[Rfam]
RNA sequence: GGCCGUGGGGAUCGCCCCCCGUCAGCGCGUCGCGCCCACGGGGGCAUUCGUG
Numbered sequence: 001g002g003c004c005g006u007g008g009g010g011a012u013c014g015c016c017c018c019c020c021g022u023c024a025g026c027g028c029g030u031c032g033c034g035c036c037c038a039c040g041g042g043g044g045c046a047u048u049c050g051u052g
Base pairs, nucleotide, nucleotide: 016044017043018042019041020040021039022038025035026034027033028032